[Rfam]
RNA sequence: AACAGGGGAACUUCAACUAAAAACGCGUACGUCCUGUAUGCAACGUUGAAGUCACUACAUCCUGUAGA
Number, nucleotide and partner (000 for none) at each position: 001a000002a000003c000004a000005g000006g000007g000008g000009a000010a000011c051012u050013u049014c048015a047016a046017c045018u000019a000020a000021a000022a000023a000024c000025g000026c040027g039028u038029a037030c036031g000032u000033c000034c000035u000036g030037u029038a028039u027040g026041c000042a000043a000044c000045g017046u016047u015048g014049a013050a012051g011052u000053c000054a000055c067056u066057a065058c064059a000060u000061c000062c000063u000064g058065u057066a056067g055068a000